[Rfam]
RNA: int-alpA RNA
RNA sequence: UGCGAGUCUAGGUCGGCCAACCGAAAAGCGGGAAACCCUACCCGCCUGGCUCGCGAGUUAAUUAGGGG
Numbered sequence: 001u002g003c004g005a006g007u008c009u010a011g012g013u014c015g016g017c018c019a020a021c022c023g024a025a026a027a028g029c030g031g032g033a034a035a036c037c038c039u040a041c042c043c044g045c046c047u048g049g050c051u052c053g054c055g056a057g058u059u060a061a062u063u064a065g066g067g068g
Base pairs, nucleotide, nucleotide: 001055002054003053004052005051006050007049008048011022012021013020028045029044030043031042032041036067037066038065039064040063